[Rfam]
RNA sequence: UUAGGUUAUAAGUCUAUUCCCGAUAGGAUUCACAUUUUUGUGAAGCUGCCUUGUAACCGUCUAAUAUCAGAAUUGGGGGAAUUUAUUCAUG
Numbered sequence: 001u002u003a004g005g006u007u008a009u010a011a012g013u014c015u016a017u018u019c020c021c022g023a024u025a026g027g028a029u030u031c032a033c034a035u036u037u038u039u040g041u042g043a044a045g046c047u048g049c050c051u052u053g054u055a056a057c058c059g060u061c062u063a064a065u066a067u068c069a070g071a072a073u074u075g076g077g078g079g080a081a082u083u084u085a086u087u088c089a090u091g
Base pairs, nucleotide, nucleotide: 017081018080019079020078021077025051026050027049029044030043031042032041033040057076058075
This 91-nucleotide sequence from Secundilactobacillus kimchicus belongs to the Rfam family "SAM-III riboswitch aptamer (SMK box)". The family's consensus secondary structure is taken from published work. For this family Rfam cites "S-adenosylmethionine directly inhibits binding of 30S ribosomal subunits to the SMK box translational riboswitch RNA" (Fuchs et al., Proc Natl Acad Sci U S A, 2007). A search with the family's covariance model found it, with a score of 69 bits.